This 78-nucleotide RNA sequence from Loxodonta africana belongs to the Rfam family "Small nucleolar RNA SNORD115". For this family Rfam cites "Identification of brain-specific and imprinted small nucleolar RNA genes exhibiting an unusual genomic organization" (Cavaille et al., Proc Natl Acad Sci U S A, 2000). The base pairs follow the family's consensus structure, which was predicted with PFOLD. It scores 71 bits against the family's covariance model. Lineage of the source: Eukaryota > Metazoa > Bilateria > Teleostomi > Loxodonta.
RNA sequence: GGGUCGAUGAUGACAUAAUCUGUCUGGAAGGGAGAUGAUGACCUAAAAAUCAUGCUCAGAGAGGUUAUGCUGAGGCCC
Numbered sequence: 001g002g003g004u005c006g007a008u009g010a011u012g013a014c015a016u017a018a019u020c021u022g023u024c025u026g027g028a029a030g031g032g033a034g035a036u037g038a039u040g041a042c043c044u045a046a047a048a049a050u051c052a053u054g055c056u057c058a059g060a061g062a063g064g065u066u067a068u069g070c071u072g073a074g075g076c077c078c
Base pairs, nucleotide, nucleotide: 001078002077003076004075005072006071008069009068